This 83-nucleotide sequence from Litomosoides sigmodontis belongs to the Rfam family "mir-83 microRNA precursor family".
The base pairs follow the family's consensus structure, which was predicted with RNAalifold.
The literature on the family includes a 2001 paper in Science by Lau et al., "An abundant class of tiny RNAs with probable regulatory roles in Caenorhabditis elegans".
RNA sequence: ACCCAUUGGAUCCUGAAUUUGUUUGAGUGCUGGACGGAACACAGCAAAUGCUCUAGCACCAUUUAAAUUCAGUAUUUCAAUCG
Numbered sequence: 001a002c003c004c005a006u007u008g009g010a011u012c013c014u015g016a017a018u019u020u021g022u023u024u025g026a027g028u029g030c031u032g033g034a035c036g037g038a039a040c041a042c043a044g045c046a047a048a049u050g051c052u053c054u055a056g057c058a059c060c061a062u063u064u065a066a067a068u069u070c071a072g073u074a075u076u077u078c079a080a081u082c083g
Base pairs, nucleotide, nucleotide: 013072014071015070016069017068018067019066020065021064024061025060027059028058030056031055033053034052035050036049